Rfam assigns this 74-nucleotide sequence from Gongylonema pulchrum to the family "mir-124 microRNA precursor family". Rfam 15.1 lists 2,215 matches to the family in 905 species. Pairs were carried over by alignment from the consensus structure, which was predicted with PFOLD. The match comes from Rfam's covariance-model search (55 bits).
[Rfam]
RNA sequence: GGCGUCUCGCUUUCACCUGUGACCUUGGUUUGAAAAUAUUGCGAUACUAAGGCACGCGGUGAAUGCCAAACGCU
Numbered sequence: 001g002g003c004g005u006c007u008c009g010c011u012u013u014c015a016c017c018u019g020u021g022a023c024c025u026u027g028g029u030u031u032g033a034a035a036a037u038a039u040u041g042c043g044a045u046a047c048u049a050a051g052g053c054a055c056g057c058g059g060u061g062a063a064u065g066c067c068a069a070a071c072g073c074u
Stems, first nucleotide, its partner, number of pairs: 003072003009066002012063005019057003023052007